This 87-nucleotide RNA belongs to the Rfam family "c-di-GMP-II-GAG riboswitch aptamer". The sequence is in the family's curated seed alignment. Its Rfam clan is "c-di-GMP_II riboswitch clan". Rfam links the family to the GO terms cyclic-di-GMP binding and regulation of gene expression.
[Rfam]
RNA sequence: CACCGAGCGGGACGCAUUGAUGCACGGUCCGAUCCUCCGGCCGCCGGGACCGUCGCGGAGCAACUGGCGAGACCGACCUGCCCACCA
Numbered sequence: 001c002a003c004c005g006a007g008c009g010g011g012a013c014g015c016a017u018u019g020a021u022g023c024a025c026g027g028u029c030c031g032a033u034c035c036u037c038c039g040g041c042c043g044c045c046g047g048g049a050c051c052g053u054c055g056c057g058g059a060g061c062a063a064c065u066g067g068c069g070a071g072a073c074c075g076a077c078c079u080g081c082c083c084a085c086c087a
Base pairs, nucleotide, nucleotide: 005083007081008080009079010078011077014061015060022056023055025052026051027050028049029048039074040073042069043068044067045066